[Rfam]
RNA sequence: UAGUUAUUAAGAAAGGCAGAGGGAAUAGACCUGUUGAAGCCUUAGCAACCCUUUAUUUAUAGAGAAGGUGCUACAUUCUACCGCAUAUUAGUGGGAAGAUAACAC
Numbered sequence: 001u002a003g004u005u006a007u008u009a010a011g012a013a014a015g016g017c018a019g020a021g022g023g024a025a026u027a028g029a030c031c032u033g034u035u036g037a038a039g040c041c042u043u044a045g046c047a048a049c050c051c052u053u054u055a056u057u058u059a060u061a062g063a064g065a066a067g068g069u070g071c072u073a074c075a076u077u078c079u080a081c082c083g084c085a086u087a088u089u090a091g092u093g094g095g096a097a098g099a100u101a102a103c104a105c
Base pairs, nucleotide, nucleotide: 003103004102005101006100007099008098013043014042015041016040017039021032022031023030026080027079028078029077044072045071046070047069049068050067051064052063053062054061076097081094082093083092084091
SAM riboswitch aptamer (S box leader): a 105-nucleotide RNA sequence from Lutibacter profundi.
It scores 71 bits against the family's covariance model.
Taxonomically the source falls in Lutibacter (Bacteria, Pseudomonadati, Flavobacteriia, Flavobacteriales).